[Rfam]
RNA: 7SK RNA
Organism: Horornis vulcanius
RNA sequence: GGAUAUGAGGGUAAUCUGGCUGUGAGAUCUGAUAUGCAUGGAUUGAUCUGACUGAUCUGGCUAGCUUAGACAGGUGUUUGCUUUCUUCCUUGAUAUUCUAUGUGUGUUCCUCUUGAUGCUGUGUGCUUGGCUAAUGAGGACAGCCUCCCCAAUAUACAUGGUAUUGUUUGUUGGUCGAGGGUGUGUGGUAGCUGUGCUCCCCUGCUGCAAGCUCUAAGUAAGCUCAAGGUCCACUUGAAGGUGAAUGUAGAGUAGUCAAGUAUCCGAUAUGAAGACAUAUGCAAAUGAGAAGCUGCAUGCAGCAGUCUACCAGUGGCUUU
Numbered sequence: 001g002g003a004u005a006u007g008a009g010g011g012u013a014a015u016c017u018g019g020c021u022g023u024g025a026g027a028u029c030u031g032a033u034a035u036g037c038a039u040g041g042a043u044u045g046a047u048c049u050g051a052c053u054g055a056u057c058u059g060g061c062u063a064g065c066u067u068a069g070a071c072a073g074g075u076g077u078u079u080g081c082u083u084u085c086u087u088c089c090u091u092g093a094u095a096u097u098c099u100a101u102g103u104g105u106g107u108u109c110c111u112c113u114u115g116a117u118g119c120u121g122u123g124u125g126c127u128u129g130g131c132u133a134a135u136g137a138g139g140a141c142a143g144c145c146u147c148c149c150c151a152a153u154a155u156a157c158a159u160g161g162u163a164u165u166g167u168u169u170g171u172u173g174g175u176c177g178a179g180g181g182u183g184u185g186u187g188g189u190a191g192c193u194g195u196g197c198u199c200c201c202c203u204g205c206u207g208c209a210a211g212c213u214c215u216a217a218g219u220a221a222g223c224u225c226a227a228g229g230u231c232c233a234c235u236u237g238a239a240g241g242u243g244a245a246u247g248u249a250g251a252g253u254a255g256u257c258a259a260g261u262a263u264c265c266g267a268u269a270u271g272a273a274g275a276c277a278u279a280u281g282c283a284a285a286u287g288a289g290a291a292g293c294u295g296c297a298u299g300c301a302g303c304a305g306u307c308u309a310c311c312a313g314u315g316g317c318u319u320u
Stems, first nucleotide, its partner, number of pairs: 001099003006092006013084002018081001024078002027075005033069001035063001037059002041057004045052001107161002111156001113130004118126002132151001138148003191261003197255002200252001202250004212243001214241002219237004283320003289311001292306005